[Rfam]
RNA sequence: AUUUGACGUUUAAUCACGGUUGAAAUAUUGUCCAACCGUGGCAUAAAGCAGUUAAAUCA
Numbered sequence: 001a002u003u004u005g006a007c008g009u010u011u012a013a014u015c016a017c018g019g020u021u022g023a024a025a026u027a028u029u030g031u032c033c034a035a036c037c038g039u040g041g042c043a044u045a046a047a048g049c050a051g052u053u054a055a056a057u058c059a
Base pairs, nucleotide, nucleotide: 010045014041015040016039017038018037019036020035021034022033
RNA: Lacto-rpoB RNA
Organism: Streptococcus pluranimalium